[Rfam]
RNA: Purine riboswitch aptamer
Organism: Paenibacillus pectinilyticus
RNA sequence: GCCACAUAACCAUGAAUCGUUCGUAUAUCCUUGAGAAUUGGCUUGAGGGUCUCUAGAGGAAGCCAUAACUUCCUAGCUACGACGGGUGCUCUUUUUCGC
Numbered sequence: 001g002c003c004a005c006a007u008a009a010c011c012a013u014g015a016a017u018c019g020u021u022c023g024u025a026u027a028u029c030c031u032u033g034a035g036a037a038u039u040g041g042c043u044u045g046a047g048g049g050u051c052u053c054u055a056g057a058g059g060a061a062g063c064c065a066u067a068a069c070u071u072c073c074u075a076g077c078u079a080c081g082a083c084g085g086g087u088g089c090u091c092u093u094u095u096u097c098g099c
Stems, first nucleotide, its partner, number of pairs: 018085001021082005029048007057074006